Rfam assigns this 180-nucleotide sequence from Aerococcus sp. Group 1 to the family "Enterococcus sRNA 2410".
About the family: Produced as 2 transcripts on Northern blot. Expressed in mid, late exponential and early stationary phases of growth. Expression remained uniform under daptomycin exposure.
RNA sequence: UUAGCUAUUUUAGAUAGCGUUUGUACUAUGAAACAUCAUAGAUACAAACGUCAAACUCAAGUUUGUAUCUAUGAUGGCUAAGGAUCUUAAGCGUGUCUAGCCCUCAUAGAAUGGAUAAAUUCUAAAUGGGCUAUACCACUAUUAAUAUAUGCUAUUAUUCAGCCCAUUUAGUUUUUUCCA
Numbered sequence: 001u002u003a004g005c006u007a008u009u010u011u012a013g014a015u016a017g018c019g020u021u022u023g024u025a026c027u028a029u030g031a032a033a034c035a036u037c038a039u040a041g042a043u044a045c046a047a048a049c050g051u052c053a054a055a056c057u058c059a060a061g062u063u064u065g066u067a068u069c070u071a072u073g074a075u076g077g078c079u080a081a082g083g084a085u086c087u088u089a090a091g092c093g094u095g096u097c098u099a100g101c102c103c104u105c106a107u108a109g110a111a112u113g114g115a116u117a118a119a120u121u122c123u124a125a126a127u128g129g130g131c132u133a134u135a136c137c138a139c140u141a142u143u144a145a146u147a148u149a150u151g152c153u154a155u156u157a158u159u160c161a162g163c164c165c166a167u168u169u170a171g172u173u174u175u176u177u178c179c180a
Stems, first nucleotide, its partner, number of pairs: 001081007011071006019049007026041004052065005085147001087145004095137001100131004107124005149174001151172004

Rfam 15.1 lists 74 matches to the family in 56 species. Rfam classes the family as a small RNA.